A member of the RNA family "Rhizobiales sRNA Atu_C8" from Oricola thermophila, 125 nucleotides long. It is annotated as a small RNA. The base pairs follow the family's consensus structure, which was predicted with CMfinder.
RNA sequence: CACCAUGACUAUGACCCUUAUCGUAGUACGACCGCGCAUGGGCAGGGCGAUGUAAUCGCCCGGCGGCAAGCACCCAUGCGCGGAAAACACAAGGCUCCUUACGGGGCCUUUUUUAUUGCACCUCU
Numbered sequence: 001c002a003c004c005a006u007g008a009c010u011a012u013g014a015c016c017c018u019u020a021u022c023g024u025a026g027u028a029c030g031a032c033c034g035c036g037c038a039u040g041g042g043c044a045g046g047g048c049g050a051u052g053u054a055a056u057c058g059c060c061c062g063g064c065g066g067c068a069a070g071c072a073c074c075c076a077u078g079c080g081c082g083g084a085a086a087a088c089a090c091a092a093g094g095c096u097c098c099u100u101a102c103g104g105g106g107c108c109u110u111u112u113u114u115a116u117u118g119c120a121c122c123u124c125u
Base pairs, nucleotide, nucleotide: 009026032118033082034081035080036079037078038077039076040075041074042073045061046060047059048058049057050056063071064070087110092109093108094107095106096105097104098103